[Rfam]
RNA sequence: ACCUUCCAAUACAACAAAAGCCCUGCCUCUCUUUCGUCCUUGCGGCUCCGAUGACCGCUCCAGUGUGAAUCAGAAAACAAACAUCCU
Numbered sequence: 001a002c003c004u005u006c007c008a009a010u011a012c013a014a015c016a017a018a019a020g021c022c023c024u025g026c027c028u029c030u031c032u033u034u035c036g037u038c039c040u041u042g043c044g045g046c047u048c049c050g051a052u053g054a055c056c057g058c059u060c061c062a063g064u065g066u067g068a069a070u071c072a073g074a075a076a077a078c079a080a081a082c083a084u085c086c087u
Base pairs, nucleotide, nucleotide: 034068035067036066039063040062042058043057044056045055047053
Record summary
This 87-nucleotide sequence from Paenibacillus algicola belongs to the Rfam family "BsrC". Lineage of the source: Bacteria > Bacillati > Bacillota > Bacilli > Paenibacillus. The literature on the family includes a 2008 paper in Gene by Saito et al., "Novel small RNA-encoding genes in the intergenic regions of Bacillus subtilis". It scores 67 bits against the family's covariance model. Rfam describes the family as follows. The 301 nucleotide sequence from Kouji Nakamura has been trimmed to a highly conserved ~85 nucleotide long core to form this family.